[Rfam]
RNA sequence: UUGCAAGUUCAAGGCCAUAGCAGAAGUGCUCACAGCAUGGCCCGUCAGAUUCCAACAGAUCUGCAAAUUCCACU
Numbered sequence: 001u002u003g004c005a006a007g008u009u010c011a012a013g014g015c016c017a018u019a020g021c022a023g024a025a026g027u028g029c030u031c032a033c034a035g036c037a038u039g040g041c042c043c044g045u046c047a048g049a050u051u052c053c054a055a056c057a058g059a060u061c062u063g064c065a066a067a068u069u070c071c072a073c074u
Base pairs, nucleotide, nucleotide: 013042014041015040016039019074020073023070024069025068026038027037028036046063047062048061049060050059051058

This 74-nucleotide RNA sequence from Crocodylus porosus belongs to the Rfam family "Mammalian CPEB3 ribozyme".
The mammalian CPEB3 ribozyme is a self cleaving RNA located in the second intron of the CPEB3 gene which belongs to a family of genes regulating messenger RNA polyadenylation. This ribozyme is highly conserved and found only in mammals. The CPEB3 ribozyme is structurally and biochemically related to the human hepatitis delta virus (HDV) ribozyme and the HDV ribozyme is proposed to have arisen from the human transcriptome. There is currently only one other known self cleaving ribozyme in mammals, the CoTC motif.
It scores 42 bits against the family's covariance model.
The base pairs follow the family's consensus structure, which is taken from published work.